The record is a 70-nucleotide RNA from Bacillus sp. J14TS2, which matches "Bacillaceae-1 RNA" in Rfam. The family has 95 seed sequences and 5,721 matches in Rfam 15.1.
RNA sequence: UAAAAAGGACCAAGUCGGCUAAAGGCGCUGACGUCCUGUCAGCAACGCCGACACUAGUACAUCCUGUACG
Numbered sequence: 001u002a003a004a005a006a007g008g009a010c011c012a013a014g015u016c017g018g019c020u021a022a023a024g025g026c027g028c029u030g031a032c033g034u035c036c037u038g039u040c041a042g043c044a045a046c047g048c049c050g051a052c053a054c055u056a057g058u059a060c061a062u063c064c065u066g067u068a069c070g
Stems, first nucleotide, its partner, number of pairs: 014052006028042005057069004